[Rfam]
RNA sequence: UUGAAGCUCCAUCUACAAAUGGAUAAGACUUUGGUUUUAGUGUAUACGAGUUUCUGAAAAUAAAGGAGCAAUACCAACACUUGCUAGAACAAGAAAUGGUUAUUGCUCCUUU
Numbered sequence: 001u002u003g004a005a006g007c008u009c010c011a012u013c014u015a016c017a018a019a020u021g022g023a024u025a026a027g028a029c030u031u032u033g034g035u036u037u038u039a040g041u042g043u044a045u046a047c048g049a050g051u052u053u054c055u056g057a058a059a060a061u062a063a064a065g066g067a068g069c070a071a072u073a074c075c076a077a078c079a080c081u082u083g084c085u086a087g088a089a090c091a092a093g094a095a096a097u098g099g100u101u102a103u104u105g106c107u108c109c110u111u112u
Stems, first nucleotide, its partner, number of pairs: 008023005062112012074099003080093003